[Rfam]
RNA sequence: CUUGAGCGAGCCCAGCCACAGCGGCCGGUCCUCCGGCCGGUCCUGGCCGUACGUCGCCAGCAGCCCCUGGGCUUC
Numbered sequence: 001c002u003u004g005a006g007c008g009a010g011c012c013c014a015g016c017c018a019c020a021g022c023g024g025c026c027g028g029u030c031c032u033c034c035g036g037c038c039g040g041u042c043c044u045g046g047c048c049g050u051a052c053g054u055c056g057c058c059a060g061c062a063g064c065c066c067c068u069g070g071g072c073u074u075c
Base pairs, nucleotide, nucleotide: 015025016024017023031071032070033069039064043060044059045058047056049054

The record is a 75-nucleotide sequence, which matches "ASpks TB sRNA" in Rfam. The family's RNA type in Rfam is antisense RNA. A search with the family's covariance model found it, with a score of 82 bits. Pairs were carried over by alignment from the consensus structure, which is taken from published work.